RNA sequence: GUGCGGCCUGAAAAUUAGGGCUGCGCCCUUGUAAACAAUGAUAAUAAUUUACGGCGCAGCCACGAUUUCCCUGGUGUUGGCGCAGUAUUCGCGCACCCCGGCUAAGCC
Number, nucleotide and partner (000 for none) at each position: 001g000002u000003g000004c000005g000006g000007c000008c000009u000010g000011a000012a000013a000014a000015u000016u000017a000018g000019g000020g060021c059022u058023g057024c056025g055026c054027c053028c000029u000030u000031g000032u000033a000034a000035a000036c000037a000038a000039u000040g000041a000042u000043a000044a000045u000046a000047a000048u000049u000050u000051a000052c000053g027054g026055c025056g024057c023058a022059g021060c020061c000062a000063c000064g000065a000066u000067u000068u000069c000070c000071c000072u000073g097074g096075u095076g000077u000078u000079g000080g094081c093082g092083c091084a000085g000086u000087a000088u000089u000090c000091g083092c082093g081094c080095a075096c074097c073098c000099c000100g000101g000102c000103u000104a000105a000106g000107c000108c000
RNA: ArcZ RNA